The family of this 89-nucleotide sequence from Jaculus jaculus is "mir-3085 microRNA precursor family".

[Rfam]
RNA sequence: AGCCCUGCUCUGGGAAGGUGCCAUUCUGAGGGCCAGGAGUUUGAUUCUGAACCACUCUGGCUGCUAUGGCCCCCUCCCAGGGCCUGGGC
Numbered sequence: 001a002g003c004c005c006u007g008c009u010c011u012g013g014g015a016a017g018g019u020g021c022c023a024u025u026c027u028g029a030g031g032g033c034c035a036g037g038a039g040u041u042u043g044a045u046u047c048u049g050a051a052c053c054a055c056u057c058u059g060g061c062u063g064c065u066a067u068g069g070c071c072c073c074c075u076c077c078c079a080g081g082g083c084c085u086g087g088g089c
Stems, first nucleotide, its partner, number of pairs: 003088003007084001008082008017073002020070005031062005037057004041051002